[Rfam]
Shown here is a 216-nucleotide sequence from Pseudaminobacter salicylatoxidans, a member of the family "permuted transfer-messenger RNA". Lineage of the source: Bacteria > Pseudomonadati > Alphaproteobacteria > Phyllobacteriaceae > Pseudaminobacter. The family's RNA type in Rfam is non-coding RNA gene. The base pairs follow the family's consensus structure, which is taken from published work. Gene Ontology term of the family: RNA catabolic process.

RNA sequence: GGCAAUAAACGGGCGAUGAAAUAAGCCGUUCGGACCCGGGGGCGGUACCCGGCGCCUCCACCAAAAACCGCUCUUGAGGGAGCGGCUUUUGAUGGGGGCGAAACAGGAUCGACGAAGGUGUAAAGAUCGUACUUUUGCCCGGCAUUGUACCACCGUUAUCGGGCUAAACUUAUAGUUGCCAACGACAACUAUGCGGAAGCUCGUCUCGCUGCUUAA
Dot-bracket structure: (((((........((((........((..(((...(((((.......)))))(((((((..................................)))))))............))).)).......)))).....)))))(((..........))).............................................................
Numbered sequence: 001g002g003c004a005a006u007a008a009a010c011g012g013g014c015g016a017u018g019a020a021a022u023a024a025g026c027c028g029u030u031c032g033g034a035c036c037c038g039g040g041g042g043c044g045g046u047a048c049c050c051g052g053c054g055c056c057u058c059c060a061c062c063a064a065a066a067a068c069c070g071c072u073c074u075u076g077a078g079g080g081a082g083c084g085g086c087u088u089u090u091g092a093u094g095g096g097g098g099c100g101a102a103a104c105a106g107g108a109u110c111g112a113c114g115a116a117g118g119u120g121u122a123a124a125g126a127u128c129g130u131a132c133u134u135u136u137g138c139c140c141g142g143c144a145u146u147g148u149a150c151c152a153c154c155g156u157u158a159u160c161g162g163g164c165u166a167a168a169c170u171u172a173u174a175g176u177u178g179c180c181a182a183c184g185a186c187a188a189c190u191a192u193g194c195g196g197a198a199g200c201u202c203g204u205c206u207c208g209c210u211g212c213u214u215a216a
Stems, first nucleotide, its partner, number of pairs: 001139005014129004026118002030115003036052005053100007140155003